Annotation: Shown here is a 116-nucleotide RNA sequence from Bacillus sp. 1NLA3E, a member of the family "PyrR binding site". About the family: This family represents the PyrR binding site and terminator structure. This RNA structure is found upstream of a variety of genes involved in pyrimidine biosynthesis and transport. The alignment also includes a portion of the antiterminator structure. Pairs were carried over by alignment from the consensus structure, which is taken from published work.
[Rfam]
RNA sequence: UAGCCCUUUUAAUGCAGUCCAGUGAGGCUGGCAAAAGGGGAGAGGGCAAAACAAAAAAAUUUUGUUUCGCCAAGCUUCUUUCCCUCUUUUGCCUUAGGCAAAAGAGGGUUAUUAUU
Numbered sequence: 001u002a003g004c005c006c007u008u009u010u011a012a013u014g015c016a017g018u019c020c021a022g023u024g025a026g027g028c029u030g031g032c033a034a035a036a037g038g039g040g041a042g043a044g045g046g047c048a049a050a051a052c053a054a055a056a057a058a059a060u061u062u063u064g065u066u067u068c069g070c071c072a073a074g075c076u077u078c079u080u081u082c083c084c085u086c087u088u089u090u091g092c093c094u095u096a097g098g099c100a101a102a103a104g105a106g107g108g109u110u111a112u113u114a115u116u
Stems, first nucleotide, its partner, number of pairs: 004039006015030005045071003049067007079111001082108011
On this family, see Bonner et al., Nucleic Acids Res 2001: "Molecular recognition of pyr mRNA by the Bacillus subtilis attenuation regulatory protein PyrR".